Overview:
The record is a 600-nucleotide part of an RNA from Galemys pyrenaicus, which matches "Eukaryotic large subunit ribosomal RNA" in Rfam.
RNA sequence: GAAGACACUGUUGAGCUUGACUAUAGUCUGGCACGGUGAAGAGACAUGAGAGGUGUAUAAUAAGUAGGAGGCCCCUGGCGCCCCAUCCCCCAUCCCCGCGAGGCCACCGGUGAAAUACCACUACUCUGAUCGUUUUUUCACCAACCCGGUUAGGCGGGGUGGCAAGCCCCGAGGGGCUCUCGCUUCUGGUGCCAAGCGCCCCGGCCGCAUGCCAGCCGGGCGCGACCCACUCCGGGGACAGUGCCAGGUGGGGAGUUUGACUGGGGCGGUACACCUGUCAAACGGUAACGCAGGUGUCCUAAGGCUAGCUCAGGGAGGACAGAAACCUCCCGUGGAGCAGAAGGGCAAAAGCUCGCUUGAUCUUGAUUUUCAGUAUGAAUACAGACCGUGAAAGUGGGGCCUCACGAUCCUUCUGAGUUUUUGGGUUUUAAGCAGGAGGUGUCAGAAAAGUUACCACAGGGAUAACUGGCUUGUGGCGGCCAAGUGUUCAUAGCGACGUCGCUUUUUGAUCCUUCAAUGUCGGCUCUUCCUAUCAUUGUGAAGCAGAAUUCACCAAGUGUUGGAUUGUUCAUCCACUAAUAGGGAACGUGAGCUGGGUUU
Number, nucleotide and partner (000 for none) at each position: 001g000002a000003a000004g000005a000006c000007a000008c459009u458010g457011u000012u456013g455014a452015g451016c450017u449018u448019g000020a256021c255022u254023a000024u000025a000026g000027u248028c247029u246030g245031g244032c243033a242034c000035g000036g141037u140038g139039a138040a137041g136042a135043g134044a133045c132046a130047u129048g000049a127050g126051a125052g124053g000054u000055g000056u000057a000058u000059a000060a000061u000062a000063a122064g121065u120066a000067g118068g000069a000070g105071g104072c103073c102074c000075c000076u000077g000078g000079c000080g000081c000082c000083c000084c000085a000086u000087c000088c000089c000090c000091c000092a000093u000094c000095c000096c000097c000098g000099c000100g000101a000102g073103g072104c071105c070106a000107c000108c000109g000110g000111u000112g000113a000114a000115a000116u000117a000118c067119c000120a065121c064122u063123a000124c052125u051126c050127u049128g000129a047130u046131c000132g045133u044134u043135u042136u041137u040138u039139c038140a037141c036142c000143a000144a000145c236146c235147c234148g233149g232150u000151u000152a000153g000154g000155c000156g228157g227158g226159g000160u000161g000162g000163c000164a000165a178166g177167c176168c175169c000170c000171g000172a000173g000174g000175g168176g167177c166178u165179c000180u000181c000182g000183c000184u000185u000186c000187u000188g000189g000190u000191g000192c000193c000194a000195a000196g223197c222198g221199c220200c219201c000202c000203g000204g000205c000206c000207g000208c000209a000210u000211g000212c000213c000214a000215g000216c000217c000218g000219g200220g199221c198222g197223c196224g000225a000226c158227c157228c156229a000230c000231u000232c149233c148234g147235g146236g145237g000238a000239c000240a000241g000242u033243g032244c031245c030246a029247g028248g027249u000250g000251g000252g000253g000254a022255g021256u020257u000258u000259g272260a270261c269262u268263g000264g000265g000266g000267c000268g262269g261270u260271a000272c259273a295274c294275c293276u292277g291278u290279c000280a000281a000282a000283c000284g000285g000286u000287a000288a000289c000290g278291c277292a276293g275294g274295u273296g000297u000298c399299c398300u000301a000302a000303g000304g356305c355306u000307a353308g352309c351310u336311c335312a000313g331314g330315g329316a328317g327318g326319a000320c000321a000322g000323a000324a000325a000326c318327c317328u316329c315330c314331c313332g000333u000334g000335g311336a310337g346338c345339a000340g000341a000342a000343g000344g000345g338346c337347a000348a000349a000350a000351g309352c308353u307354c000355g305356c304357u000358u000359g000360a000361u385362c384363u383364u000365g000366a380367u379368u378369u377370u000371c000372a000373g000374u000375a000376u000377g369378a368379a367380u366381a000382c000383a363384g362385a361386c000387c396388g395389u394390g000391a000392a000393a000394g389395u388396g387397g000398g299399g298400c000401c000402u000403c000404a000405c000406g000407a000408u000409c000410c438411u437412u436413c435414u434415g433416a000417g000418u432419u431420u430421u000422u000423g000424g000425g000426u000427u000428u000429u000430a420431a419432g418433c415434a414435g413436g412437a411438g410439g000440u000441g000442u000443c000444a000445g000446a000447a000448a018449a017450g016451u015452u014453a000454c000455c013456a012457c010458a009459g008460g000461g000462a000463u000464a000465a000466c000467u000468g000469g510470c000471u508472u000473g507474u000475g503476g502477c501478g500479g499480c498481c000482a000483a000484g494485u493486g000487u000488u000489c000490a000491u000492a000493g485494c484495g000496a000497c000498g480499u479500c478501g477502c476503u475504u000505u000506u000507u473508g471509a000510u469511c000512c000513u000514u000515c000516a000517a000518u000519g000520u000521c596522g594523g593524c592525u591526c588527u585528u584529c583530c582531u581532a000533u000534c559535a558536u000537u000538g553539u552540g551541a550542a549543g000544c000545a000546g000547a000548a000549u542550u541551c540552a539553c538554c000555a000556a000557g000558u535559g534560u000561u575562g574563g573564a572565u571566u000567g000568u000569u000570c000571a565572u564573c563574c562575a561576c000577u000578a000579a000580u000581a531582g530583g529584g528585a527586a000587c000588g526589u000590g000591a525592g524593c523594u522595g000596g521597g000598u000599u000600u000